[Rfam]
RNA sequence: CACCACCAGAAGCAGCAAAGAAGUAAGGGUGACAUGGUAUGGUACUACCACCCUUACUUCUGUGCUGCUGAUGGCAGCG
Numbered sequence: 001c002a003c004c005a006c007c008a009g010a011a012g013c014a015g016c017a018a019a020g021a022a023g024u025a026a027g028g029g030u031g032a033c034a035u036g037g038u039a040u041g042g043u044a045c046u047a048c049c050a051c052c053c054u055u056a057c058u059u060c061u062g063u064g065c066u067g068c069u070g071a072u073g074g075c076a077g078c079g
Stems, first nucleotide, its partner, number of pairs: 001079001003077001006074002010072001011069007020059001022058008
Record summary: mir-16 microRNA precursor family: a 79-nucleotide RNA sequence from Chrysemys picta. A reference for the family is Partin et al. (2020), "Cryo-EM Structures of Human Drosha and DGCR8 in Complex with Primary MicroRNA", Mol Cell. Gene Ontology terms of the family: miRNA-mediated post-transcriptional gene silencing and RISC complex. Its Rfam clan is "mir-15 clan". The match comes from Rfam's covariance-model search (38 bits).